[Rfam]
RNA sequence: CCAACGUGGAUACCCGGAGAAGUCGCUCUCUCUCGGCUCUGUCCGUGUGGCGCGCGGGAGCGCAGGCCCUCGGGCCCGUGACGUACAGUCCCUUUCCACGACGUUGGAGAACAAGCCGGGCCCCGAGCCUGCAGCCUGCAUAUUCCUACUGCUUCUCUGAGCCCCCGGGCCGUGACAGAGGAGACAAACCAUGCAGGAAACACUG
Dot-bracket structure: ((((((((((((.(((.(((......)))....)))...)))))..((((.....(((((.((..((..........))...)).)..))))...)))).)))))))...........................(((((((..........((((((...(((....))).......)))))).......)))))))........
Numbered sequence: 001c002c003a004a005c006g007u008g009g010a011u012a013c014c015c016g017g018a019g020a021a022g023u024c025g026c027u028c029u030c031u032c033u034c035g036g037c038u039c040u041g042u043c044c045g046u047g048u049g050g051c052g053c054g055c056g057g058g059a060g061c062g063c064a065g066g067c068c069c070u071c072g073g074g075c076c077c078g079u080g081a082c083g084u085a086c087a088g089u090c091c092c093u094u095u096c097c098a099c100g101a102c103g104u105u106g107g108a109g110a111a112c113a114a115g116c117c118g119g120g121c122c123c124c125g126a127g128c129c130u131g132c133a134g135c136c137u138g139c140a141u142a143u144u145c146c147u148a149c150u151g152c153u154u155c156u157c158u159g160a161g162c163c164c165c166c167g168g169g170c171c172g173u174g175a176c177a178g179a180g181g182a183g184a185c186a187a188a189c190c191a192u193g194c195a196g197g198a199a200a201c202a203c204u205g
Stems, first nucleotide, its partner, number of pairs: 001107007008044005014036003018029003047099004056092004060086001062084002066079002135197007152183006161170003